[Rfam]
RNA sequence: UCAUGGAGGGGACGAGAUGUUGAUUUUCGUCCCAUCAAUUGAGGACAUGAGGUACAGUAAUGGUGGCGAGAUAUCGUUUCAGUCGUCAUUUCUCUUCAUUGACGAUUCGAUUGUUGCUCGUCCACAU
Numbered sequence: 001u002c003a004u005g006g007a008g009g010g011g012a013c014g015a016g017a018u019g020u021u022g023a024u025u026u027u028c029g030u031c032c033c034a035u036c037a038a039u040u041g042a043g044g045a046c047a048u049g050a051g052g053u054a055c056a057g058u059a060a061u062g063g064u065g066g067c068g069a070g071a072u073a074u075c076g077u078u079u080c081a082g083u084c085g086u087c088a089u090u091u092c093u094c095u096u097c098a099u100u101g102a103c104g105a106u107u108c109g110a111u112u113g114u115u116g117c118u119c120g121u122c123c124a125c126a127u
Base pairs, nucleotide, nucleotide: 003039004038006036007035009033010032011031012030013029014028015027016026017025065123066122067120068119069118070117073111074110075109076108082106083105084104085103086102087101088100090098
The record is a 127-nucleotide sequence from Dorcoceras hygrometricum, which matches "Small nucleolar RNA snoR111" in Rfam. Rfam 15.1 lists 533 matches to the family in 223 species. The source organism's lineage runs through Eukaryota, Magnoliopsida, eudicotyledons, asterids and Dorcoceras. Gene Ontology terms of the family: nucleolus and RNA processing. Rfam classes the family as an H/ACA-box small nucleolar RNA.